[Rfam]
RNA sequence: GUACUCCCUCUGUAAAGAAAUAUAAGAUCAUUUAGAUCACUACUUUAGUGACCUAAACGAUCUUAUAUUUCUUUAGAGAGGGAGUAU
Numbered sequence: 001g002u003a004c005u006c007c008c009u010c011u012g013u014a015a016a017g018a019a020a021u022a023u024a025a026g027a028u029c030a031u032u033u034a035g036a037u038c039a040c041u042a043c044u045u046u047a048g049u050g051a052c053c054u055a056a057a058c059g060a061u062c063u064u065a066u067a068u069u070u071c072u073u074u075a076g077a078g079a080g081g082g083a084g085u086a087u
Base pairs, nucleotide, nucleotide: 003085004084005083007081008080009079010078011077013075014074015073016072017071019069020068021067022066023065024064025063026062027061028060029059031057032056033055034054035053037051038050039049040048041047

The record is an 87-nucleotide RNA from Triticum aestivum, which matches "MIR1120/MIR1122 microRNA precursor family" in Rfam. The match comes from Rfam's covariance-model search (88 bits). The family has 6 seed sequences and 44,765 matches in Rfam 15.1. The literature on the family includes a 2007 paper in Genome Biol by Yao et al., "Cloning and characterization of microRNAs from wheat (Triticum aestivum L.)". The family's consensus secondary structure was predicted with RNAalifold.